[Rfam]
RNA sequence: CCUGGCAGUGAUGACACACUUGCCCUCACUGAGAGCUUGUCUCAAUAAUGAGAACCCCAUAGUACUCAAUUUAUCUGAGCCAGG
Dot-bracket structure: ((((((........................................................................))))))

This 84-nucleotide RNA sequence from Conger conger belongs to the Rfam family "Small nucleolar RNA SNORD103/SNORD85". A reference for the family is Vitali et al. (2003), "Identification of 13 novel human modification guide RNAs", Nucleic Acids Res. The source organism's lineage runs through Eukaryota, Craniata, Elopocephalai, Anguilliformes and Conger. Its family is annotated with nucleolus and RNA processing in the Gene Ontology. Pairs were carried over by alignment from the consensus structure.